[Rfam]
RNA sequence: GGCACUAUGGCGGAGUGGUUAACGCGAUGCCCUGCUAUUUUACAUCCCAAAUCGCAGAAAAUUAUCCUUUCCGUUGGGUUAGGUUUAGUUAAGGCAUUUCCUUCGGGAGCGCAGGUUCGAAUCCUGCUGGUGUCG
Numbered sequence: 001g002g003c004a005c006u007a008u009g010g011c012g013g014a015g016u017g018g019u020u021a022a023c024g025c026g027a028u029g030c031c032c033u034g035c036u037a038u039u040u041u042a043c044a045u046c047c048c049a050a051a052u053c054g055c056a057g058a059a060a061a062u063u064a065u066c067c068u069u070u071c072c073g074u075u076g077g078g079u080u081a082g083g084u085u086u087a088g089u090u091a092a093g094g095c096a097u098u099u100c101c102u103u104c105g106g107g108a109g110c111g112c113a114g115g116u117u118c119g120a121a122u123c124c125u126g127c128u129g130g131u132g133u134c135g
Base pairs, nucleotide, nucleotide: 001134002133003132004131005130006129007128010025011024012023027097028096029095030094031093111127112126113125114124115123

Shown here is a 135-nucleotide sequence from Histoplasma capsulatum, a member of the family "tRNA". Rfam describes the family as follows. Transfer RNA (tRNA) molecules are approximately 80 nucleotides in length. It scores 46 bits against the family's covariance model. Taxonomically the source falls in Histoplasma capsulatum (Eukaryota, Fungi, leotiomyceta, Onygenales).